[Rfam]
Overview
The record is a 107-nucleotide RNA from Arabidopsis thaliana, which matches "Plant small nucleolar RNA R71" in Rfam. The literature on the family includes a 2003 paper in Trends Plant Sci by Brown et al., "Plant snoRNAs: functional evolution and new modes of gene expression". By type it is a C/D-box small nucleolar RNA. A search with the family's covariance model found it, with a score of 79 bits.
RNA sequence: AAACCGUGAUGUGGGCACAGAGUGGUGUAGCUUUUAAACCUCUCCCAAGCUUCACAGAAAGUUUCAUUGUUUUUCUGAGUGAAGCCUGAGAUCUCGUUCCUCAAUUU
Numbered sequence: 001a002a003a004c005c006g007u008g009a010u011g012u013g014g015g016c017a018c019a020g021a022g023u024g025g026u027g028u029a030g031c032u033u034u035u036a037a038a039c040c041u042c043u044c045c046c047a048a049g050c051u052u053c054a055c056a057g058a059a060a061g062u063u064u065c066a067u068u069g070u071u072u073u074u075c076u077g078a079g080u081g082a083a084g085c086c087u088g089a090g091a092u093c094u095c096g097u098u099c100c101u102c103a104a105u106u107u
Stems, first nucleotide, its partner, number of pairs: 001107001003105001006101001057074002060071001
Dot-bracket structure: (.(..(..................................................((.(..........).))..........................)...).)